[Rfam]
This 180-nucleotide RNA from Pseudomonas fluorescens belongs to the Rfam family "Pseudomonas sRNA P1". This small RNA (sRNA) was computationally identified in the genome of the opportunistic pathogen Pseudomonas aeruginosa and its expression verified by northern blot analysis. The family's RNA type in Rfam is non-coding RNA gene. The literature on the family includes a 2006 paper in Nucleic Acids Res by Livny et al., "Identification of 17 Pseudomonas aeruginosa sRNAs and prediction of sRNA-encoding genes in 10 diverse pathogens using the bioinformatic tool sRNAPredict2".

RNA sequence: ACCCCGGUAUUAUUGCUGUUAUGGGUUUGAUUUGAGCUUAGCGUUGUUCAUUUUUUUACACAACACCCCCGUAAAAAAUACAACACGCCCCGCUCAAGCCUGCGGCCGCCAAAGACCCCGAAGGUAUAAAAAUGCCCCAAAGCGCCUCAAAAAUGCCCUUGGAGCGCUUUUUUAGGGCAA
Number, nucleotide and partner (000 for none) at each position: 001a000002c000003c000004c000005c000006g000007g000008u000009a000010u000011u000012a000013u000014u000015g000016c000017u000018g000019u000020u000021a000022u000023g101024g100025g099026u098027u097028u096029g000030a000031u000032u000033u000034g093035a000036g091037c000038u000039u000040a000041g089042c000043g000044u085045u000046g084047u083048u082049c000050a000051u000052u078053u077054u076055u075056u074057u073058a072059c071060a000061c000062a000063a000064c000065a000066c000067c000068c000069c000070c000071g059072u058073a057074a056075a055076a054077a053078a052079u000080a000081c000082a048083a047084c046085a044086c000087g000088c000089c041090c000091c036092g000093c034094u000095c000096a028097a027098g026099c025100c024101u023102g000103c000104g000105g000106c000107c000108g000109c000110c000111a000112a000113a000114g000115a000116c000117c000118c000119c000120g000121a000122a000123g000124g000125u000126a000127u000128a000129a000130a000131a000132a000133u000134g000135c000136c000137c000138c000139a000140a000141a000142g000143c000144g000145c000146c000147u000148c000149a000150a000151a000152a000153a000154u000155g000156c000157c000158c000159u000160u000161g000162g000163a000164g178165c177166g000167c175168u000169u000170u000171u000172u000173u000174a000175g167176g000177g165178c164179a000180a000
The organism belongs to Pseudomonas fluorescens, within Bacteria.